The record is a 123-nucleotide RNA from Trichonephila inaurata, which matches "Phenylalanine leader peptide" in Rfam.
Nucleotides: 123
Stems, first nucleotide, its partner, number of pairs: 016092004021087004025082004029077004036070003041054004057063002096117009
Number, partner (000 for none) and nucleotide at each position: 001000u002000a003000a004000a005000a006000a007000a008000a009000a010000a011000a012000a013000c014000c015000c016092c017091u018090u019089u020000u021087u022086u023085u024084u025082u026081u027080u028079u029077u030076g031075g032074g033000u034000u035000u036070u037069u038068u039000u040000u041054u042053u043052u044051u045000a046000a047000a048000a049000a050000a051044a052043a053042a054041a055000g056000g057063g058062a059000g060000u061000u062058u063057c064000a065000a066000g067000g068038g069037g070036g071000c072000c073000c074032c075031c076030c077029a078000a079028a080027a081026a082025a083000a084024a085023a086022a087021a088000g089019g090018a091017a092016g093000a094000a095000a096117a097116a098115a099114a100113a101112c102111c103110c104109c105000c106000c107000c108000c109104g110103g111102g112101g113100u114099u115098u116097u117096u118000u119000u120000u121000u122000u123000u

Description: It is annotated as a cis-regulatory leader. A reference for the family is Zurawski et al. (1978), "Nucleotide sequence of the leader region of the phenylalanine operon of Escherichia coli", Proc Natl Acad Sci U S A. The base pairs follow the family's consensus structure, which was predicted with CMfinder.